Small nucleolar RNA SNORD25: an 84-nucleotide RNA from Camphora micrantha.
The family's consensus secondary structure was predicted with PFOLD.
It is annotated as a C/D-box small nucleolar RNA.
Clan: SNORD25 clan.

RNA sequence: GACAACGAUGAUGACUCAUACAGACCUGUAAUGAGUUGCGAACAUGAUCGCACCUUCAAAGAACAUCUAAGGGACUGAGUUGUC
Numbered sequence: 001g002a003c004a005a006c007g008a009u010g011a012u013g014a015c016u017c018a019u020a021c022a023g024a025c026c027u028g029u030a031a032u033g034a035g036u037u038g039c040g041a042a043c044a045u046g047a048u049c050g051c052a053c054c055u056u057c058a059a060a061g062a063a064c065a066u067c068u069a070a071g072g073g074a075c076u077g078a079g080u081u082g083u084c
Stems, first nucleotide, its partner, number of pairs: 002083005
NCBI's taxonomy places the organism under Eukaryota, Viridiplantae, Tracheophyta, Euphyllophyta, Camphora. Rfam 15.1 lists 985 matches to the family in 241 species.